[Rfam]
RNA: Bacterial large subunit ribosomal RNA, nucleotides 628 to 856
Organism: Desulfobulbus sp. Tol-SR
RNA sequence: GAGUUAAUCUGUAGUGCGAGGUUAAGCCGAUGAGGUGGAGCCGUAGCGAAAGCGAGUCUUAAAUGGGCGUUCAGUACUGCGGAUUAGACCCGAAGCCGGGUGAUCUAUCCAUGAGCAGGUUGAAGCUUGGGUAAAACCAAGUGGAGGACCGAACCGUUGUAAGUUGAAAAUUACUCGGAUGACUUGUGGAUAGGGGUGAAAGGCCAAUCAAACUCGGUGAUAGCUGGUU
Number, nucleotide and partner (000 for none) at each position: 001g000002a000003g000004u000005u086006a085007a084008u083009c082010u081011g080012u079013a078014g077015u076016g075017c074018g000019a000020g042021g041022u040023u039024a000025a000026g036027c035028c034029g000030a000031u000032g000033a000034g028035g027036u026037g000038g000039a023040g022041c021042c020043g000044u000045a000046g053047c052048g000049a000050a000051a000052g047053c046054g000055a000056g068057u067058c066059u065060u000061a000062a000063a000064u000065g059066g058067g057068c056069g000070u000071u000072c000073a000074g017075u016076a015077c014078u013079g012080c011081g010082g009083a008084u007085u006086a005087g000088a000089c227090c226091c000092g224093a000094a000095g000096c217097c216098g215099g214100g213101u212102g000103a000104u000105c193106u192107a191108u190109c189110c188111a187112u186113g185114a184115g183116c181117a000118g150119g149120u148121u147122g000123a000124a000125g142126c141127u140128u139129g138130g137131g000132u000133a000134a000135a000136a000137c130138c129139a128140a127141g126142u125143g000144g000145a000146g000147g121148a120149c119150c118151g000152a000153a000154c178155c177156g176157u000158u000159g174160u173161a172162a171163g000164u000165u000166g000167a000168a000169a000170a000171u162172u161173a160174c159175u000176c156177g155178g154179a000180u000181g116182a000183c115184u114185u113186g112187u111188g110189g109190a108191u107192a106193g105194g000195g205196g204197u203198g000199a000200a000201a000202g000203g197204c196205c195206a000207a000208u000209c000210a000211a000212a101213c100214u099215c098216g097217g096218u000219g000220a000221u000222a000223g000224c092225u000226g090227g089228u000229u000